[Rfam]
RNA: Saccharopolyspora sRNA 350
RNA sequence: GUGGCGGUGCAGGCCCACCGGGCCCCCGAGUCCAACAGAACGUCCUCACCGAACCGGUCGCCGUCGGCCAGUACGGCAACGGUGGUCUCGUCGCCGUACUUGCCCACGGAGGUCUGCCGGACGCGGCCGUGGGCGAUCAGGUGCAACUGCUCGGCGGGUGCACCGCGCACGACCAGCGUUUCGCCCGCACGGAAGUCGCGUUGGACACACCGGUCGGCGAUCGCGGUCAGCACCUCCACGUCCUCGAAGCCACGCAGCAGGGCCAGUUCGCCGAGCUCGCGGGGGAUCACCCGUACGUCGGCACCGUCCUGGACGAACUCGACGCGCCCAUCGCCGACGGUGUGACUCAGCCGACGGUUCACCCGGUAGGUGCCGCCUCCGACCUCAACCCAGGGAAGUGUCCGCAGCAGCCAGCGAGAGGUGAUCCCCUGCAUCUGCGGGGCGGACUUGGUCGUGGUGGCGAGGUUGCGGGCGGCCGCCGUGCUCAGGCUCGACUGCCGAGGCGG
Numbered sequence: 001g002u003g004g005c006g007g008u009g010c011a012g013g014c015c016c017a018c019c020g021g022g023c024c025c026c027c028g029a030g031u032c033c034a035a036c037a038g039a040a041c042g043u044c045c046u047c048a049c050c051g052a053a054c055c056g057g058u059c060g061c062c063g064u065c066g067g068c069c070a071g072u073a074c075g076g077c078a079a080c081g082g083u084g085g086u087c088u089c090g091u092c093g094c095c096g097u098a099c100u101u102g103c104c105c106a107c108g109g110a111g112g113u114c115u116g117c118c119g120g121a122c123g124c125g126g127c128c129g130u131g132g133g134c135g136a137u138c139a140g141g142u143g144c145a146a147c148u149g150c151u152c153g154g155c156g157g158g159u160g161c162a163c164c165g166c167g168c169a170c171g172a173c174c175a176g177c178g179u180u181u182c183g184c185c186c187g188c189a190c191g192g193a194a195g196u197c198g199c200g201u202u203g204g205a206c207a208c209a210c211c212g213g214u215c216g217g218c219g220a221u222c223g224c225g226g227u228c229a230g231c232a233c234c235u236c237c238a239c240g241u242c243c244u245c246g247a248a249g250c251c252a253c254g255c256a257g258c259a260g261g262g263c264c265a266g267u268u269c270g271c272c273g274a275g276c277u278c279g280c281g282g283g284g285g286a287u288c289a290c291c292c293g294u295a296c297g298u299c300g301g302c303a304c305c306g307u308c309c310u311g312g313a314c315g316a317a318c319u320c321g322a323c324g325c326g327c328c329c330a331u332c333g334c335c336g337a338c339g340g341u342g343u344g345a346c347u348c349a350g351c352c353g354a355c356g357g358u359u360c361a362c363c364c365g366g367u368a369g370g371u372g373c374c375g376c377c378u379c380c381g382a383c384c385u386c387a388a389c390c391c392a393g394g395g396a397a398g399u400g401u402c403c404g405c406a407g408c409a410g411c412c413a414g415c416g417a418g419a420g421g422u423g424a425u426c427c428c429c430u431g432c433a434u435c436u437g438c439g440g441g442g443c444g445g446a447c448u449u450g451g452u453c454g455u456g457g458u459g460g461c462g463a464g465g466u467u468g469c470g471g472g473c474g475g476c477c478g479c480c481g482u483g484c485u486c487a488g489g490c491u492c493g494a495c496u497g498c499c500g501a502g503g504c505g506g
Stems, first nucleotide, its partner, number of pairs: 006390003011385002015381001020328002022325002027321004031316002036311003040307003046303001049301004058229001060227005065111001068108001075103001077102003082097005122217001127212001129210002132206001134204001135202002140197001143196002150191001154188007161178001165174001235295001237293001240290002244286002250282002253279002256277003260271001262269001329342004353377001355375003360372004391431005397425001399423003403418001405416001407415001437476002440473001443470002446467001447465003451461002477505002480500002486497003
Dot-bracket structure: .....(((..((..(....((((...((((((...(((.(((...(..((((.....(.((((((..(......(.(((..(((((......)))))..))))....)..)..........(....(.((.(.(((...(..((.....(...((((((((...(........)...)...)))))))..)...)))...)).).)..)).)....).....))))).).....(.(..((..((....((.((.(((.(.(......).)...))))).))..))..))..).)..)))).).))).)))...)).))))..)).))((((......))))..........(.(((..((((.....))))))).)...)..))..)))(((((.(.(((.(.(.(.......)).)..))).).))))).....((.(..((.((((.((.......)).))).).))..).))((.((....(((......))).))...)).